[Rfam]
The record is a 149-nucleotide RNA sequence from Bacteroides sp. CAG:189, which matches "Bacteroides sRNA BTnc231" in Rfam.
RNA sequence: ACGUUUUUUUCAUAGAGAUUUAGAUUUAAGGUUAGAAGAAUUGCGGAAGUCGUGAGACUUCCCUUUUUUUCGCUUUAACGUUUACUGCCUUUUCAAUUUUUUCAAAGCAAGUAAACAAGAAAAGCCGCUUCGAGAGAAGAGGCUUUUUC
Number, nucleotide and partner (000 for none) at each position: 001a000002c000003g000004u000005u000006u000007u000008u000009u000010u000011c000012a000013u000014a000015g000016a000017g000018a000019u000020u000021u000022a000023g000024a000025u000026u078027u077028a076029a075030g074031g073032u072033u000034a000035g071036a070037a069038g068039a067040a066041u000042u000043g000044c000045g062046g061047a060048a059049g058050u057051c056052g000053u000054g000055a000056g051057a050058c049059u048060u047061c046062c045063c000064u000065u000066u040067u039068u038069u037070u036071c035072g032073c031074u030075u029076u028077a027078a026079c000080g116081u115082u114083u113084a112085c111086u110087g000088c000089c107090u106091u105092u104093u000094c000095a000096a000097u000098u000099u000100u000101u000102u000103c000104a092105a091106a090107g089108c000109a000110a086111g085112u084113a083114a082115a081116c080117a000118a000119g148120a147121a146122a145123a144124g143125c142126c141127g000128c139129u138130u137131c136132g000133a000134g000135a000136g131137a130138a129139g128140a000141g126142g125143c124144u123145u122146u121147u120148u119149c000
Background
For this family Rfam cites "A high-resolution transcriptome map identifies small RNA regulation of metabolism in the gut microbe Bacteroides thetaiotaomicron" (Ryan et al., Nat Commun, 2020). It is annotated as a small RNA.